[Rfam]
RNA sequence: GGUAUUCCUUAUCUCUAAUACGUUGAUUUGUCUGGAACCUGUCCCAUUGCGUUUUCAGCUAAAAGCGCAAUAAGACAGGUUCUGCGUUUAGUUGCCGCGCUCUAAAAAAAC
Numbered sequence: 001g002g003u004a005u006u007c008c009u010u011a012u013c014u015c016u017a018a019u020a021c022g023u024u025g026a027u028u029u030g031u032c033u034g035g036a037a038c039c040u041g042u043c044c045c046a047u048u049g050c051g052u053u054u055u056c057a058g059c060u061a062a063a064a065g066c067g068c069a070a071u072a073a074g075a076c077a078g079g080u081u082c083u084g085c086g087u088u089u090a091g092u093u094g095c096c097g098c099g100c101u102c103u104a105a106a107a108a109a110a111c
Base pairs, nucleotide, nucleotide: 001096002095003094004093020087021086022085023084034083035082036081037080038079039078040077041076042075043074046071047070048069049068050067052065053064054063055062

The record is a 111-nucleotide RNA from Trabulsiella odontotermitis, which matches "tp2" in Rfam. The organism belongs to Trabulsiella, within Bacteria. Rfam classes the family as a small RNA. The family's consensus secondary structure was predicted with RNAalifold.